[Rfam]
Annotation: Shown here is a 79-nucleotide RNA sequence from Microcebus murinus, a member of the family "mir-320 microRNA precursor family". The source organism's lineage runs through Eukaryota, Opisthokonta, Eumetazoa, Craniata and Microcebus. It scores 65 bits against the family's covariance model. The base pairs follow the family's consensus structure, which was predicted with RNAalifold. A reference for the family is Berezikov et al. (2006), "Many novel mammalian microRNA candidates identified by extensive cloning and RAKE analysis", Genome Res.

RNA sequence: ACUUGUCUCGCUCUUCUCUUCCCAGUUCUUCCCCCAGUCAUCGGGAAAAGCUGGUUUGAGAGGGCAGAAAAAAAAAAAA
Numbered sequence: 001a002c003u004u005g006u007c008u009c010g011c012u013c014u015u016c017u018c019u020u021c022c023c024a025g026u027u028c029u030u031c032c033c034c035c036a037g038u039c040a041u042c043g044g045g046a047a048a049a050g051c052u053g054g055u056u057u058g059a060g061a062g063g064g065c066a067g068a069a070a071a072a073a074a075a076a077a078a079a
Base pairs, nucleotide, nucleotide: 014062015061016060017059018058022054023053024052025051029047030046031045032044033043